[Rfam]
RNA: Xanthine riboswitch aptamer (NMT1 RNA)
RNA sequence: GUAUUGAGUAGAAGCGUUCAGCGCCUGCGGCCGACGGUGGCAGGCGCCCGGAAAUUGCUCAGUUC
Numbered sequence: 001g002u003a004u005u006g007a008g009u010a011g012a013a014g015c016g017u018u019c020a021g022c023g024c025c026u027g028c029g030g031c032c033g034a035c036g037g038u039g040g041c042a043g044g045c046g047c048c049c050g051g052a053a054a055u056u057g058c059u060c061a062g063u064u065c
Base pairs, nucleotide, nucleotide: 005061006060007059008058009057010056015050018052019051021047022046023045024044025043026042027041